[Rfam]
RNA sequence: GGCAAUGUUGAGCGAUGAUGUUUGUCUCGUUCGUCGGAAUGGCGAGAUCCACCAAGUCUCACAAAGCCUUGACGACAAUUUUCACCACCCAUAACCUGAGCUC
Numbered sequence: 001g002g003c004a005a006u007g008u009u010g011a012g013c014g015a016u017g018a019u020g021u022u023u024g025u026c027u028c029g030u031u032c033g034u035c036g037g038a039a040u041g042g043c044g045a046g047a048u049c050c051a052c053c054a055a056g057u058c059u060c061a062c063a064a065a066g067c068c069u070u071g072a073c074g075a076c077a078a079u080u081u082u083c084a085c086c087a088c089c090c091a092u093a094a095c096c097u098g099a100g101c102u103c
Base pairs, nucleotide, nucleotide: 001102002101003100044070045069
Small nucleolar RNA Z43: a 103-nucleotide RNA from Coccomyxa sp. Obi. It is annotated as a C/D-box small nucleolar RNA. Rfam links the family to the GO terms RNA processing and nucleolus. A search with the family's covariance model found it, with a score of 45 bits. For this family Rfam cites "The high diversity of snoRNAs in plants: identification and comparative study of 120 snoRNA genes from Oryza sativa" (Chen et al., Nucleic Acids Res, 2003). The base pairs follow the family's consensus structure, which was predicted with PFOLD.